This 90-nucleotide RNA from Branchiostoma belcheri belongs to the Rfam family "mir-2060 microRNA precursor family".
The match comes from Rfam's covariance-model search (84 bits).
Rfam links the family to the GO terms miRNA-mediated post-transcriptional gene silencing and RISC complex.
The family has 7 seed sequences and 3,696 matches in Rfam 15.1.
The organism belongs to Branchiostoma, within Eukaryota.

[Rfam]
Nucleotides: 090
Stems, first nucleotide, its partner, number of pairs: 004081007018071007026063007034051001036049001041048002
Number, partner (000 for none) and nucleotide at each position: 001000u002000u003000u004081u005080g006079u007078c008077u009076g010075u011000g012000c013000g014000u015000g016000g017000a018071u019070g020069g021068u022067g023066u024065u025000c026063a027062g028061u029060a030059c031058c032057a033000a034051g035000g036049a037000c038000a039000g040000g041048u042047g043000u044000g045000u046000u047042u048041a049036u050000g051034u052000g053000u054000g055000g056000a057032u058031g059030g060029u061028g062027u063026u064000c065024a066023g067022c068021a069020c070019c071018a072000a073000g074000g075010a076009c077008a078007g079006g080005u081004a082000u083000g084000u085000u086000u087000g088000u089000c090000u